[Rfam]
RNA sequence: GACCCAAUGGUCAAGAUGGUUAAGACAUAACAUUUUCACUGUUAGUGGGGGAGUUCAAUCCUCCCUUGGGUUG
Numbered sequence: 001g002a003c004c005c006a007a008u009g010g011u012c013a014a015g016a017u018g019g020u021u022a023a024g025a026c027a028u029a030a031c032a033u034u035u036u037c038a039c040u041g042u043u044a045g046u047g048g049g050g051g052a053g054u055u056c057a058a059u060c061c062u063c064c065c066u067u068g069g070g071u072u073g
Stems, first nucleotide, its partner, number of pairs: 001072007010026003028044005049065005
The family of this 73-nucleotide RNA sequence from Aspergillus nidulans is "tRNA". NCBI's taxonomy places the organism under Eukaryota, Dikarya, Ascomycota, Pezizomycotina, Aspergillus subgen. Nidulantes. The sequence is in the family's curated seed alignment.